[Rfam]
RNA: sroB RNA
Organism: Yersinia pseudotuberculosis
RNA sequence: CCGCAAGGAAUGUGAGUGCUUAAUAACUAAAAUAAUGAAAAUUCCUCUUUGACUGGCCGGUAGUGAUAUCGGCCAUUUUUUA
Numbered sequence: 001c002c003g004c005a006a007g008g009a010a011u012g013u014g015a016g017u018g019c020u021u022a023a024u025a026a027c028u029a030a031a032a033u034a035a036u037g038a039a040a041a042u043u044c045c046u047c048u049u050u051g052a053c054u055g056g057c058c059g060g061u062a063g064u065g066a067u068a069u070c071g072g073c074c075a076u077u078u079u080u081u082a
Base pairs, nucleotide, nucleotide: 007020008019010017011016028034029033054075055074056073057072058071059070060069061068062067